[Rfam]
RNA: Alphaproteobacteria transfer-messenger RNA
Organism: Roseovarius aestuarii
RNA sequence: CGCCUUUGCAAAUCACCCGGGACCGCCUAUAUAUGAACUGUCCUUCGGGACUAUGAACAUAAACGCGCUCGUAAUAAGCGGAUCGGACCCGGGGGCGGUACCCGGCGGCUCCACCAAAAUCCCUUUCAUUUGAAGGGCUUCGGGGCCGAAACAGGAUCGACGAACGUCUAAAGGGGUUAGCUUUGUUUCGGUGAGGUACCACCGUUAUCGGUCCGAACAGUACAAUUGCAAAUGACAAUCGUGCUCCGGUGGCUCUCGCUGCGUAAGCAGUUGGAACAUCGAAACUUAAGCCCUUGUCUCUAGCCAGAUAAGGCGGGGUUCGCAGGCACCUGGCAACAGAAGCCUGCACU
Number, nucleotide and partner (000 for none) at each position: 001c000002g000003c000004c000005u000006u000007u000008g000009c000010a000011a000012a000013u000014c000015a000016c000017c000018c000019g000020g000021g000022a000023c000024c000025g000026c000027c000028u000029a000030u000031a000032u000033a000034u000035g000036a000037a000038c000039u000040g051041u050042c049043c048044u000045u000046c000047g000048g043049g042050a041051c040052u000053a000054u000055g188056a187057a186058c185059a184060u000061a000062a000063a000064c000065g181066c180067g177068c176069u175070c174071g000072u000073a000074a000075u000076a000077a000078g000079c166080g165081g000082a000083u163084c162085g161086g000087a000088c000089c105090c104091g103092g102093g101094g000095g000096c000097g000098g000099u000100a000101c093102c092103c091104g090105g089106c148107g147108g146109c145110u144111c143112c142113a000114c000115c000116a000117a000118a000119a000120u000121c000122c000123c000124u000125u000126u000127c000128a000129u000130u000131u000132g000133a000134a000135g000136g000137g000138c000139u000140u000141c000142g112143g111144g110145g109146c108147c107148g106149a000150a000151a000152c000153a000154g000155g000156a000157u000158c000159g000160a000161c085162g084163a083164a000165c080166g079167u000168c000169u000170a000171a000172a000173g000174g070175g069176g068177u067178u000179a000180g066181c065182u000183u000184u059185g058186u057187u056188u055189c204190g203191g202192u201193g000194a000195g214196g213197u000198a212199c211200c210201a192202c191203c190204g189205u000206u000207a000208u000209c000210g200211g199212u198213c196214c195215g000216a000217a000218c000219a000220g000221u000222a000223c000224a000225a000226u000227u000228g000229c000230a000231a000232a000233u000234g000235a000236c000237a000238a000239u000240c000241g000242u000243g000244c000245u000246c000247c000248g000249g000250u000251g000252g000253c000254u000255c000256u000257c000258g000259c000260u000261g000262c000263g000264u000265a000266a000267g000268c000269a000270g000271u000272u000273g000274g000275a000276a000277c000278a000279u000280c000281g000282a000283a000284a000285c000286u000287u000288a000289a000290g000291c000292c000293c000294u000295u000296g000297u000298c000299u000300c000301u000302a000303g000304c000305c000306a000307g000308a000309u000310a000311a000312g000313g000314c000315g000316g331317g330318g329319u328320u000321c000322g347323c346324a345325g344326g343327c342328a319329c318330c317331u316332g000333g000334c000335a000336a000337c000338a000339g000340a000341a000342g327343c326344c325345u324346g323347c322348a000349c000350u000